A member of the RNA family "FMN riboswitch aptamer (RFN element)" from Paracoccus sulfuroxidans, 144 nucleotides long. A search with the family's covariance model found it, with a score of 112 bits.
RNA sequence: CCAUGUUCUCAGGGCGGGGUGAAAUUCCCUACCGGCGGUAAGCGGCGCGUCCGCAAGCCCGCGAGCGCCCCUCGCAGCAGGGGGUCAGCAGAUCAGGUGCGAUUCCUGGGCCGACGGUCACAGUCCGGAUGAAAGAGAAUGUGC
Numbered sequence: 001c002c003a004u005g006u007u008c009u010c011a012g013g014g015c016g017g018g019g020u021g022a023a024a025u026u027c028c029c030u031a032c033c034g035g036c037g038g039u040a041a042g043c044g045g046c047g048c049g050u051c052c053g054c055a056a057g058c059c060c061g062c063g064a065g066c067g068c069c070c071c072u073c074g075c076a077g078c079a080g081g082g083g084g085u086c087a088g089c090a091g092a093u094c095a096g097g098u099g100c101g102a103u104u105c106c107u108g109g110g111c112c113g114a115c116g117g118u119c120a121c122a123g124u125c126c127g128g129a130u131g132a133a134a135g136a137g138a139a140u141g142u143g144c
Base pairs, nucleotide, nucleotide: 003142004141005140006139007138008137009136010135017029018028019027031124032123033113034112035062036061037060038059057111058110065089066088093109094108095107096106097105115127116126117125
Background
Taxonomically the source falls in Paracoccus (Bacteria, Pseudomonadati, Pseudomonadota, Alphaproteobacteria).